[Rfam]
RNA: Plastid-ycf3 group II-D1 intron
Organism: Corchorus capsularis
RNA sequence: UUUCAUUCUGUCGUGUAUUCUCGAUUAGUGCAACCUCAUAUGCUUCA
Numbered sequence: 001u002u003u004c005a006u007u008c009u010g011u012c013g014u015g016u017a018u019u020c021u022c023g024a025u026u027a028g029u030g031c032a033a034c035c036u037c038a039u040a041u042g043c044u045u046c047a
Stems, first nucleotide, its partner, number of pairs: 010025004032044001034042001